[Rfam]
RNA sequence: GUAGAUGCUCAUUCCACCUCUUAUGUUUGCUUCGGCUACAUAAACCUGGGAAUGACGCAGAGCCAAUUUUGGGUACCUGUUGUCUGCCUGCCUGUAUCGCGAAAGUCUUACAGGGUUAUCAGACACCACGUUGAGUCGGGUACCUCUCGGUUGUCUAACCGACCUGAUCUUACACCUGCUUUUAGCAGGUGUUUUUUU
Number, nucleotide and partner (000 for none) at each position: 001g063002u062003a000004g000005a000006u059007g058008c057009u055010c054011a053012u052013u000014c000015c050016a000017c049018c000019u042020c000021u000022u038023a000024u000025g000026u000027u035028u000029g033030c000031u000032u000033c029034g000035g027036c000037u000038a022039c000040a000041u000042a019043a000044a000045c000046c000047u000048g000049g017050g015051a000052a012053u011054g010055a009056c000057g008058c007059a006060g000061a000062g002063c001064c000065a000066a000067u000068u000069u000070u000071g000072g144073g143074u142075a141076c140077c139078u138079g000080u000081u000082g124083u123084c122085u121086g120087c000088c000089u000090g000091c000092c000093u112094g111095u110096a109097u000098c000099g000100c000101g000102a000103a000104a000105g000106u000107c000108u000109u096110a095111c094112a093113g000114g000115g000116u000117u000118a000119u000120c086121a085122g084123a083124c082125a000126c000127c000128a000129c000130g000131u000132u000133g000134a000135g000136u000137c000138g078139g077140g076141u075142a074143c073144c072145u000146c000147u000148c000149g000150g000151u000152u000153g163154u162155c161156u000157a000158a000159c000160c000161g155162a154163c153164c000165u000166g000167a000168u000169c000170u000171u000172a192173c191174a190175c189176c188177u187178g186179c185180u184181u000182u000183u000184a180185g179186c178187a177188g176189g175190u174191g173192u172193u000194u000195u000196u000197u000198u000

Notes:
The family of this 198-nucleotide RNA sequence from Pantoea ananatis is "GlmZ RNA activator of glmS mRNA". The base pairs follow the family's consensus structure, which is taken from published work. It is annotated as a small RNA. This RNA was discovered in E. coli during a large scale screen. The sraJ gene was expressed in early logarithmic phase, but its level decreased with cell growth. Specific cleavage products of this RNA were found. Identified in Yersinia pseudotuberculosis as Ysr248/153/sR016.